[Rfam]
RNA sequence: CCAACGGCUCUUUUAAGAGCCACUCACUGCAUCUGGAGAGCUUUG
Numbered sequence: 001c002c003a004a005c006g007g008c009u010c011u012u013u014u015a016a017g018a019g020c021c022a023c024u025c026a027c028u029g030c031a032u033c034u035g036g037a038g039a040g041c042u043u044u045g
Base pairs, nucleotide, nucleotide: 006021007020008019009018010017011016

Histone 3' UTR stem-loop: a 45-nucleotide RNA from Xiphophorus maculatus. The base pairs follow the family's consensus structure, which is taken from published work. The organism belongs to Xiphophorus, within Eukaryota.